[Rfam]
RNA sequence: AACAGAUAAUUUCUCCGAUUCAUUCAUGCCUAAUGCGCCCGCAAAGGCAGGAUGAACGAAAGGGUCAGCAUGGAAACGUGCUGGCCUCCCGUUUUGGAAAGGAGACCUCCUAUGUUGGAC
Numbered sequence: 001a002a003c004a005g006a007u008a009a010u011u012u013c014u015c016c017g018a019u020u021c022a023u024u025c026a027u028g029c030c031u032a033a034u035g036c037g038c039c040c041g042c043a044a045a046g047g048c049a050g051g052a053u054g055a056a057c058g059a060a061a062g063g064g065u066c067a068g069c070a071u072g073g074a075a076a077c078g079u080g081c082u083g084g085c086c087u088c089c090c091g092u093u094u095u096g097g098a099a100a101g102g103a104g105a106c107c108u109c110c111u112a113u114g115u116u117g118g119a120c
Base pairs, nucleotide, nucleotide: 003114004113006111012105013104014103015102016101019056020055021054022053023052024051025050027049028048029047030046034043035042036041062087063086064085065084066083067082068081069080070079071078072077088097089096